[Rfam]
RNA sequence: CUGACGGUCGCGUUUGGGUAGAUAUAGGUGUUGGACGCCUUGCCCUCCUCAAAAAUGGUAAAGCUGAGGGACGUGUGACCGUCAG
Dot-bracket structure: (((((...(((((..(((....(.(((...))).)..)))..(((((((..(......)..))..)))))))))).....)))))
Numbered sequence: 001c002u003g004a005c006g007g008u009c010g011c012g013u014u015u016g017g018g019u020a021g022a023u024a025u026a027g028g029u030g031u032u033g034g035a036c037g038c039c040u041u042g043c044c045c046u047c048c049u050c051a052a053a054a055a056u057g058g059u060a061a062a063g064c065u066g067a068g069g070g071a072c073g074u075g076u077g078a079c080c081g082u083c084a085g
Stems, first nucleotide, its partner, number of pairs: 001085005009075005016040003023035001025033003043070005048063002052059001

The family of this 85-nucleotide sequence is "L4-Archaeoglobi ribosomal protein leades". Rfam's curators put it in the seed alignment. By type it is a cis-regulatory leader. The base pairs follow the family's consensus structure, which is taken from published work. A reference for the family is Eckert and Weinberg (2020), "Discovery of 20 novel ribosomal leader candidates in bacteria and archaea", BMC Microbiol.